The family of this 84-nucleotide RNA from Candidatus Regiella insecticola is "sRNA-Xcc1".
RNA sequence: GGUCGGGUGUGUGGCUAAUACAAUACCCGUAAGGGAAAUACACCCGCCGACUGUGUACGGUUUUGAGCACCCGACCCCCCUCUC
Numbered sequence: 001g002g003u004c005g006g007g008u009g010u011g012u013g014g015c016u017a018a019u020a021c022a023a024u025a026c027c028c029g030u031a032a033g034g035g036a037a038a039u040a041c042a043c044c045c046g047c048c049g050a051c052u053g054u055g056u057a058c059g060g061u062u063u064u065g066a067g068c069a070c071c072c073g074a075c076c077c078c079c080c081u082c083u084c
Base pairs, nucleotide, nucleotide: 001076002075003074004073005072006071007070008069009068013044014043016040017039026035027034028033046061047060048059049058
Rfam classes the family as a small RNA. The literature on the family includes a 2011 paper in RNA Biol by Chen et al., "sRNA-Xcc1, an integron-encoded transposon- and plasmid-transferred trans-acting sRNA, is under the positive control of the key virulence regulators HrpG and HrpX of Xanthomonas campestris pathovar campestris".